[Rfam]
RNA sequence: UUGUGGCCGAAGCCGCCGAACUCAGAGGCCGGCCCCAGAAAACCCGAGCGAGUAGGGGGCGGCGCGCAGGAGGGAGGAGAACUGGGGGCGCGGGAGGCUGGUGGGUGUGGGGGGUGGAGAUGUAGAAGAUGUGACGCCGCGGCCCGGCGGGUGCCAGAUUAGCGGACGGCUGCCCGCGGUUGCAACGGGAUCCCGGGCGCUGCAGCUUGGGAGGCGGCUCUCCCCAGGCGGCGUCCGCGGAGACACCCAUCUGUGAACCCCAGGUCCCGGGCCGCCGGCUCGCCGCGCACCAGGGGCCGGCGGACAGAAGAGCGGCCGAGCGGCUCGAGGCUGGGGGACCGCGGGCGCGGCCGCGCGCUGCCGGGCGGGAGGCUGGGGGGCCGGGGCCGGGGCCGUGCCCGGAGCGGGUCGGAGGCCGGGGCCGGGGCCGGGGGACGGCGGCUCCCCGCGCGGCUCCAGCGGCUCGGGGAUCCCGGCCGGGCCCCGCAGGGACCAUG
Numbered sequence: 001u002u003g004u005g006g007c008c009g010a011a012g013c014c015g016c017c018g019a020a021c022u023c024a025g026a027g028g029c030c031g032g033c034c035c036c037a038g039a040a041a042a043c044c045c046g047a048g049c050g051a052g053u054a055g056g057g058g059g060c061g062g063c064g065c066g067c068a069g070g071a072g073g074g075a076g077g078a079g080a081a082c083u084g085g086g087g088g089c090g091c092g093g094g095a096g097g098c099u100g101g102u103g104g105g106u107g108u109g110g111g112g113g114g115u116g117g118a119g120a121u122g123u124a125g126a127a128g129a130u131g132u133g134a135c136g137c138c139g140c141g142g143c144c145c146g147g148c149g150g151g152u153g154c155c156a157g158a159u160u161a162g163c164g165g166a167c168g169g170c171u172g173c174c175c176g177c178g179g180u181u182g183c184a185a186c187g188g189g190a191u192c193c194c195g196g197g198c199g200c201u202g203c204a205g206c207u208u209g210g211g212a213g214g215c216g217g218c219u220c221u222c223c224c225c226a227g228g229c230g231g232c233g234u235c236c237g238c239g240g241a242g243a244c245a246c247c248c249a250u251c252u253g254u255g256a257a258c259c260c261c262a263g264g265u266c267c268c269g270g271g272c273c274g275c276c277g278g279c280u281c282g283c284c285g286c287g288c289a290c291c292a293g294g295g296g297c298c299g300g301c302g303g304a305c306a307g308a309a310g311a312g313c314g315g316c317c318g319a320g321c322g323g324c325u326c327g328a329g330g331c332u333g334g335g336g337g338a339c340c341g342c343g344g345g346c347g348c349g350g351c352c353g354c355g356c357g358c359u360g361c362c363g364g365g366c367g368g369g370a371g372g373c374u375g376g377g378g379g380g381c382c383g384g385g386g387c388c389g390g391g392g393c394c395g396u397g398c399c400c401g402g403a404g405c406g407g408g409u410c411g412g413a414g415g416c417c418g419g420g421g422c423c424g425g426g427g428c429c430g431g432g433g434g435a436c437g438g439c440g441g442c443u444c445c446c447c448g449c450g451c452g453g454c455u456c457c458a459g460c461g462g463c464u465c466g467g468g469g470a471u472c473c474c475g476g477c478c479g480g481g482c483c484c485c486g487c488a489g490g491g492a493c494c495a496u497g
Base pairs, nucleotide, nucleotide: 030383031382032381033380034379035378036377044368045367046366058362059361060360061359062358063357064356065355066354067353082263083262084261085260086259087258089255090254091253092252102249103248104247105246106245107244143189144188145187147177148176149175150174151173152172153171155169194237195236196235197234198233199232200231201230202229203228209224210223211222212221213220214219268327269326270325271324272323273322274301275300276299277298278297279296398408399407400406401405418485419484420483421482422481423480429479430478431477448465450463451462466474467473468472
Background: This 497-nucleotide RNA belongs to the Rfam family "FGF-2 internal ribosome entry site (IRES)". Rfam links the family to the GO term ribosome binding. Rfam describes the family as follows. This family represents the fibroblast growth factor 2 (FGF-2) internal ribosome entry site (IRES). When expressed the FGF-2 protein plays a pivotal role in cell proliferation, differentiation and survival as well as being involved in wound-healing. The family's consensus secondary structure was predicted with PFOLD. The literature on the family includes a 2000 paper in J Cell Biol by Creancier et al., "Fibroblast growth factor 2 internal ribosome entry site (IRES) activity ex vivo and in transgenic mice reveals a stringent tissue-specific regulation".